The record is a 209-nucleotide sequence from Amaricoccus solimangrovi, which matches "permuted transfer-messenger RNA" in Rfam. The family's consensus secondary structure is taken from published work. The family's RNA type in Rfam is non-coding RNA gene. Bacterial tmRNA, also known as 10Sa RNA or SsrA, is named for its dual tRNA and mRNA-like properties. Its role is to liberate the mRNA from a stalled ribosome. To accomplish this part of the tmRNA is used as a reading frame that ends in a translation stop signal. The broken mRNA is replaced in the ribosome by the tmRNA and translation of the tmRNA leads to addition of a proteolysis tag to the incomplete protein enabling recognition by a protease.
RNA sequence: GGUGAUAAACGCGCACGUAAUAAGCGGAUCGGACCCGGGGGCGGUACCCGGCGGCUCCACCAGACACCCUCGUUGGGGGCGGACGGGGCCGAAACAGGAUCGACGGACGUCCAAAGGUGUUAGCUUUCACUCGGCUGGAUGCCACCGUUACCGGCUCAAGAGCAAUAGUUGCCAACGACAACCACGCUCCGGUCGCGCUCGCCGCGUAA
Numbered sequence: 001g002g003u004g005a006u007a008a009a010c011g012c013g014c015a016c017g018u019a020a021u022a023a024g025c026g027g028a029u030c031g032g033a034c035c036c037g038g039g040g041g042c043g044g045u046a047c048c049c050g051g052c053g054g055c056u057c058c059a060c061c062a063g064a065c066a067c068c069c070u071c072g073u074u075g076g077g078g079g080c081g082g083a084c085g086g087g088g089c090c091g092a093a094a095c096a097g098g099a100u101c102g103a104c105g106g107a108c109g110u111c112c113a114a115a116g117g118u119g120u121u122a123g124c125u126u127u128c129a130c131u132c133g134g135c136u137g138g139a140u141g142c143c144a145c146c147g148u149u150a151c152c153g154g155c156u157c158a159a160g161a162g163c164a165a166u167a168g169u170u171g172c173c174a175a176c177g178a179c180a181a182c183c184a185c186g187c188u189c190c191g192g193u194c195g196c197g198c199u200c201g202c203c204g205c206g207u208a209a
Base pairs, nucleotide, nucleotide: 001131002130003129004128005127013120014119015118016117025109026108029106030105031104035051036050037049038048039047052091053090054089055088056087057086058085132147133146134145